[Rfam]
Rfam assigns this 39-nucleotide sequence from Carlito syrichta to the family "S4-Bacteroidia ribosomal protein leader".
The family's RNA type in Rfam is cis-regulatory leader.

RNA sequence: GGUUACAGACCCUCUUCCUUCUCUCUGUAGCCGCGGCUG
Numbered sequence: 001g002g003u004u005a006c007a008g009a010c011c012c013u014c015u016u017c018c019u020u021c022u023c024u025c026u027g028u029a030g031c032c033g034c035g036g037c038u039g
Stems, first nucleotide, its partner, number of pairs: 001032009